[Rfam]
RNA sequence: AAUAGGCCCGGGAGCCCUUAGGUCCCUCCUGGGGGCAGGGCCUGAGGCACAUGGUCGGGUUGGGCCCAUUGUGCCUCAGGCCCUGCCCCCAGGGAGGGACCUAAGGCUCCCGGGCCUAUUCUGA
Numbered sequence: 001a002a003u004a005g006g007c008c009c010g011g012g013a014g015c016c017c018u019u020a021g022g023u024c025c026c027u028c029c030u031g032g033g034g035g036c037a038g039g040g041c042c043u044g045a046g047g048c049a050c051a052u053g054g055u056c057g058g059g060u061u062g063g064g065c066c067c068a069u070u071g072u073g074c075c076u077c078a079g080g081c082c083c084u085g086c087c088c089c090c091a092g093g094g095a096g097g098g099a100c101c102u103a104a105g106g107c108u109c110c111c112g113g114g115c116c117u118a119u120u121c122u123g124a
Base pairs, nucleotide, nucleotide: 010111011110012109013108014107015106016105021101022100024098025097026096027094028093029092030091031090032089033088034087036085037084038083039082040081041080042079043078044077045076046075047074048073049072050071051070